[Rfam]
RNA sequence: AUUCGGGCAUGAUGACUAAACCGAUUAUCUGAGGCUUCAGCUCUGCUGAUUAGUCAUUUUUGCACGUCAGUCUGAUCCGAUA
Numbered sequence: 001a002u003u004c005g006g007g008c009a010u011g012a013u014g015a016c017u018a019a020a021c022c023g024a025u026u027a028u029c030u031g032a033g034g035c036u037u038c039a040g041c042u043c044u045g046c047u048g049a050u051u052a053g054u055c056a057u058u059u060u061u062g063c064a065c066g067u068c069a070g071u072c073u074g075a076u077c078c079g080a081u082a
Base pairs, nucleotide, nucleotide: 003080004079005078006077007076
The family of this 82-nucleotide RNA sequence from Turnera subulata is "Small nucleolar RNA Z122". The match comes from Rfam's covariance-model search (53 bits). A reference for the family is Qu et al. (1999), "Seven novel methylation guide small nucleolar RNAs are processed from a common polycistronic transcript by Rat1p and RNase III in yeast", Mol Cell Biol. Rfam classes the family as a C/D-box small nucleolar RNA. Pairs were carried over by alignment from the consensus structure, which was predicted with PFOLD.